[Rfam]
RNA sequence: CAAUUAAACUAGUGAUAGUUCGAUGAAUCGUGAGAAGUCAGCAGACGUCAUAGUAGUCUCCCUUUCGGGUGAUGAAGGAC
Numbered sequence: 001c002a003a004u005u006a007a008a009c010u011a012g013u014g015a016u017a018g019u020u021c022g023a024u025g026a027a028u029c030g031u032g033a034g035a036a037g038u039c040a041g042c043a044g045a046c047g048u049c050a051u052a053g054u055a056g057u058c059u060c061c062c063u064u065u066c067g068g069g070u071g072a073u074g075a076a077g078g079a080c
Stems, first nucleotide, its partner, number of pairs: 001025002004023002007020005037046003047080003056073003060069002
Group II catalytic intron D1-D4-1: an 80-nucleotide sequence from Ureibacillus massiliensis. A search with the family's covariance model found it, with a score of 71 bits. From the family's description: Group II introns are found in rRNA, tRNA and mRNA of organelles in fungi, plants and protists, and also in mRNA in bacteria. The source organism's lineage runs through Bacteria, Bacillota, Bacilli, Ureibacillus and Ureibacillus massiliensis. The base pairs follow the family's consensus structure.